Overview:
Shown here is a 161-nucleotide RNA sequence from Butyrivibrio sp. CB08, a member of the family "Clostridiales-1 RNA".
RNA sequence: AAUGAUAUGGUGUCAGAAGGUCAGAAUGCGUGCAUGCUUGCAUGCUAAGCCUUCUGACUUUAUGACACUAACAAACAUGAGGAAGUAGGCCGAUAGGCCGGAUUCCGAAUGGUUGUAGGAUUGCGAAAGCUGCUUUUUAGCGUAGCAAUCCGUAUAUCAUU
Numbered sequence: 001a002a003u004g005a006u007a008u009g010g011u012g013u014c015a016g017a018a019g020g021u022c023a024g025a026a027u028g029c030g031u032g033c034a035u036g037c038u039u040g041c042a043u044g045c046u047a048a049g050c051c052u053u054c055u056g057a058c059u060u061u062a063u064g065a066c067a068c069u070a071a072c073a074a075a076c077a078u079g080a081g082g083a084a085g086u087a088g089g090c091c092g093a094u095a096g097g098c099c100g101g102a103u104u105c106c107g108a109a110u111g112g113u114u115g116u117a118g119g120a121u122u123g124c125g126a127a128a129g130c131u132g133c134u135u136u137u138u139a140g141c142g143u144a145g146c147a148a149u150c151c152g153u154a155u156a157u158c159a160u161u
Base pairs, nucleotide, nucleotide: 001161002160003159004158005157006156007155011067012066013065014064017061018060019059020058021057022056023055024054025053026052028050031047032045033044034043035042036041071116072115073114074113076111077110078109081106082105083104084103088099089098090097091096118151119150120149121148122147123146124145129141130140131139132138
It is annotated as a small RNA.